[Rfam]
The family of this 420-nucleotide RNA from Aeromicrobium yanjiei is "Bacterial RNase P class A". A search with the family's covariance model found it, with a score of 269 bits. The family's RNA type in Rfam is ribozyme. The source organism's lineage runs through Bacteria, Bacillati, Actinomycetota, Propionibacteriales and Aeromicrobium.

RNA sequence: UGAGUCGGCCGGGCGGCCGCGGCACCGGGUCGUACGACCACGGUGUCGAGGAAAGUCCGGACUCCGCAGAGCGACGGUGGUGGCUAACGGCCACCCACGGCGACGUGCGGGACAGUGCCACAGAGAACAGACCGCCAGCGGCCUGCGCCUUCGGGCGCAGGUGCGGGUAAGGGUGAAACGGUGAGGUAAGAGCUCACCAGCGCUCCGGGUGACCGGGGCGGCUAGGUAAACCCCACCGGGAGCAAGACCAAGAGGACUCCUCCGCGUGCGGAGGGGUCUGCGCUGACGGGCUGCUCGUCCGAUGUCAGCGGGUAGGUUGCACGAGGCGUCCAGCAAUGGGCGUCCCAGAUGGAUGGUCGCCCGGGCCGGUGGAGUGAUCCGCUGGUCUGACAGGAUCCGGCUUACAGGCCGGCUCAUUCG
Dot-bracket structure: ((((((((((((((((((.((((((((.............))))))))....[[[.[[[[[((((.....[...((((((((((.....)))))(((((....)))).)((...(((((............(((((.(((.(.................).))).)))..)).......((((((.......)))))).(((((((((....)))))))).)..)))..)))))))))))))...((((......((.............................(((((...].)))))..)).........))))......((((((((....))))))))..........)))))))..................................]]]]]]]].).))))))))))....